[Rfam]
The record is a 189-nucleotide RNA from Vibrio furnissii, which matches "MicX Vibrio cholerae sRNA" in Rfam. Rfam classes the family as a small RNA.
RNA sequence: AUAACAACGAUAAUGGCGACCGCAAGGUCGCCCAUUUUGUCCACCCUUAACACUUUUGGUUUGGCCGCCGAUCAGUUAAGAAGGAGACAAUUCUGGCGUUACGCAUAGCUGGCUGUUAGCUCUAUUCCUUACGUAUCAUGACUAACAGUUUUUGUAACCAAAACCUGAGCUGAGCUCAGGUUUUUUUAU
Dot-bracket structure: ..............(((((((....))))))).......(....(((((((....(((((......)))))...))))))..).....)........((((((.......(((((((((......................)))))))))..))))))...(((((((((...))))))))).......
Numbered sequence: 001a002u003a004a005c006a007a008c009g010a011u012a013a014u015g016g017c018g019a020c021c022g023c024a025a026g027g028u029c030g031c032c033c034a035u036u037u038u039g040u041c042c043a044c045c046c047u048u049a050a051c052a053c054u055u056u057u058g059g060u061u062u063g064g065c066c067g068c069c070g071a072u073c074a075g076u077u078a079a080g081a082a083g084g085a086g087a088c089a090a091u092u093c094u095g096g097c098g099u100u101a102c103g104c105a106u107a108g109c110u111g112g113c114u115g116u117u118a119g120c121u122c123u124a125u126u127c128c129u130u131a132c133g134u135a136u137c138a139u140g141a142c143u144a145a146c147a148g149u150u151u152u153u154g155u156a157a158c159c160a161a162a163a164c165c166u167g168a169g170c171u172g173a174g175c176u177c178a179g180g181u182u183u184u185u186u187u188a189u
Stems, first nucleotide, its partner, number of pairs: 015032007040089001045083001046080006056071005098158006111150009162182009

Pairs were carried over by alignment from the consensus structure, which was predicted with CMfinder. For this family Rfam cites "RNase E-dependent processing stabilizes MicX, a Vibrio cholerae sRNA" (Davis and Waldor, Mol Microbiol, 2007).